[Rfam]
RNA sequence: GGAAGUGUUUCGUUACCGGUGUAACGCCUGGUCUUCAAAACCAGUGGACGGCUAAUACCCGUUUGUAGGUUCGACUCCUAUGCACUUCC
Number, nucleotide and partner (000 for none) at each position: 001g089002g088003a087004a086005g085006u084007g083008u082009u000010u000011c026012g025013u024014u023015a022016c021017c000018g000019g000020u000021g016022u015023a014024a013025c012026g011027c000028c044029u043030g042031g041032u040033c000034u000035u000036c000037a000038a000039a000040a032041c031042c030043a029044g028045u000046g000047g063048a062049c061050g060051g059052c000053u000054a000055a000056u000057a000058c000059c051060c050061g049062u048063u047064u000065g000066u080067a079068g078069g077070u000071u000072c000073g000074a000075c000076u000077c069078c068079u067080a066081u000082g008083c007084a006085c005086u004087u003088c002089c001
Rfam assigns this 89-nucleotide RNA sequence from Desulfovibrio litoralis to the family "Selenocysteine transfer RNA". Lineage of the source: Bacteria > Desulfovibrionia > Desulfovibrionales > Desulfovibrio > Desulfovibrio litoralis. The base pairs follow the family's consensus structure, which is taken from published work. It scores 76 bits against the family's covariance model. Rfam 15.1 lists 4,211 matches to the family in 3,344 species.